[Rfam]
RNA sequence: GGGUGCAGAUGAAUAUCAAGUAAUCUGCAGGUUUUUGGGUGGUCGGGCCGCCAUCC
Number, nucleotide and partner (000 for none) at each position: 001g000002g000003g000004u000005g028006c027007a026008g025009a024010u023011g000012a000013a000014u000015a000016u000017c000018a000019a000020g000021u000022a000023a010024u009025c008026u007027g006028c005029a000030g000031g000032u000033u000034u000035u000036u000037g056038g055039g054040u053041g052042g051043u050044c000045g000046g000047g000048c000049c000050g043051c042052c041053a040054u039055c038056c037